[Rfam]
RNA sequence: UAUAUUGUUCGGUAGGUGAGGCUACUACGGGGAUCCGGGCUAUUGCCGCAGAGUGGUGGAAACACCAUGCGCUGGUGAACAGGAUGUAUCGAUUCCGAAGGUGCAUUUUAAUAUAGUUUUUCAUGCCCCGCAAAGUCAAAGCUCAAACGAAUCGAGUGGGACU
Number, nucleotide and partner (000 for none) at each position: 001u000002a000003u000004a000005u159006u158007g157008u156009u155010c154011g148012g000013u099014a000015g143016g142017u141018g000019a000020g137021g136022c135023u000024a000025c000026u132027a000028c130029g129030g128031g127032g126033a000034u000035c000036c000037g000038g000039g117040c116041u115042a114043u113044u000045g000046c074047c000048g072049c071050a000051g000052a000053g000054u000055g066056g065057u064058g063059g000060a000061a000062a000063c058064a057065c056066c055067a000068u000069g000070c000071g049072c048073u000074g046075g000076u000077g000078a000079a000080c000081a000082g108083g107084a106085u105086g000087u000088a102089u101090c100091g000092a000093u000094u000095c000096c000097g000098a000099a013100g090101g089102u088103g000104c000105a085106u084107u083108u082109u000110a000111a000112u000113a043114u042115a041116g040117u039118u000119u000120u000121u000122c000123a000124u000125g000126c032127c031128c030129c029130g028131c000132a026133a000134a000135g022136u021137c020138a000139a000140a000141g017142c016143u015144c000145a000146a000147a000148c011149g000150a000151a000152u000153c000154g010155a009156g008157u007158g006159g005160g000161a000162c000163u000